[Rfam]
RNA sequence: GUUGGCUAUGGGGACAUGCACCCAGUAACCAUAGGCGGUAAAAUCGUCGGGUCCUUGUGUGCUAUCGCCGGCGUAUUAACCAUCGCUUUGCCAGUGCCAGUUAUCGUUUCGAAU
Numbered sequence: 001g002u003u004g005g006c007u008a009u010g011g012g013g014a015c016a017u018g019c020a021c022c023c024a025g026u027a028a029c030c031a032u033a034g035g036c037g038g039u040a041a042a043a044u045c046g047u048c049g050g051g052u053c054c055u056u057g058u059g060u061g062c063u064a065u066c067g068c069c070g071g072c073g074u075a076u077u078a079a080c081c082a083u084c085g086c087u088u089u090g091c092c093a094g095u096g097c098c099a100g101u102u103a104u105c106g107u108u109u110c111g112a113a114u
Stems, first nucleotide, its partner, number of pairs: 001114002005110001008107004013102003018097004037077004049063002
Dot-bracket structure: ((..(..((((.(((..((((...............((((........((...........))..........))))................))))..))).))))..)..))